[Rfam]
RNA: Glycine riboswitch aptamer
Organism: Arthrobacter sp. C9C5
RNA sequence: CAACUCUGGAAAGCAGCAAGUGCGUCACGUGAUGCGCUGUGCUCACCGACGGUGCAAGCGGAGCCUCGCGAAAGCGGCUGCGCGGAAACUCUCAGGUCCAAUACAGAGCGGGGAGG
Numbered sequence: 001c002a003a004c005u006c007u008g009g010a011a012a013g014c015a016g017c018a019a020g021u022g023c024g025u026c027a028c029g030u031g032a033u034g035c036g037c038u039g040u041g042c043u044c045a046c047c048g049a050c051g052g053u054g055c056a057a058g059c060g061g062a063g064c065c066u067c068g069c070g071a072a073a074g075c076g077g078c079u080g081c082g083c084g085g086a087a088a089c090u091c092u093c094a095g096g097u098c099c100a101a102u103a104c105a106g107a108g109c110g111g112g113g114a115g116g
Stems, first nucleotide, its partner, number of pairs: 001111001004108005015043004045097003048093002052091001054089001